The family of this 88-nucleotide sequence from Asparagus officinalis is "mir-156 microRNA precursor family". NCBI's taxonomy places the organism under Eukaryota, Streptophyta, Tracheophyta, Asparagoideae, Asparagus.
RNA sequence: UUGACAGAAGAGAGUGAGCACUCAUGGUAUCUUUCUCGCAUGAAGAGCACAUGCUUGAAGCUAUGUGUGCUCACUCUCUGUCUGUCAC
Numbered sequence: 001u002u003g004a005c006a007g008a009a010g011a012g013a014g015u016g017a018g019c020a021c022u023c024a025u026g027g028u029a030u031c032u033u034u035c036u037c038g039c040a041u042g043a044a045g046a047g048c049a050c051a052u053g054c055u056u057g058a059a060g061c062u063a064u065g066u067g068u069g070c071u072c073a074c075u076c077u078c079u080g081u082c083u084g085u086c087a088c
Stems, first nucleotide, its partner, number of pairs: 002087007010078012023065003
Notes:
The literature on the family includes a 2001 paper in Cell by Ambros, "microRNAs: tiny regulators with great potential". It scores 81 bits against the family's covariance model. Rfam links the family to the GO terms RISC complex and miRNA-mediated post-transcriptional gene silencing. The family's consensus secondary structure was predicted with PFOLD.